[Rfam]
RNA: mir-150 microRNA precursor family
Organism: Canis lupus
RNA sequence: UCUCCCAACCCUUGUACCAGUGCUGUGCCUCAGUCCCUGGUACAGGCAUGGGGGGCA
Numbered sequence: 001u002c003u004c005c006c007a008a009c010c011c012u013u014g015u016a017c018c019a020g021u022g023c024u025g026u027g028c029c030u031c032a033g034u035c036c037c038u039g040g041u042a043c044a045g046g047c048a049u050g051g052g053g054g055g056c057a
Base pairs, nucleotide, nucleotide: 001055002054003053004052005051009046010045013044014043015042016041017040018039019038